[Rfam]
RNA: Plastid-psbN 5UTR RNA
Organism: Rhynchospora breviuscula
RNA sequence: UGCAACUCCCAUAAGUGGGGUUAGUACCCCAACCCGGAGCUACUUUACCAUAUUCUGAAUUC
Numbered sequence: 001u002g003c004a005a006c007u008c009c010c011a012u013a014a015g016u017g018g019g020g021u022u023a024g025u026a027c028c029c030c031a032a033c034c035c036g037g038a039g040c041u042a043c044u045u046u047a048c049c050a051u052a053u054u055c056u057g058a059a060u061u062c
Stems, first nucleotide, its partner, number of pairs: 017046004022042004027037002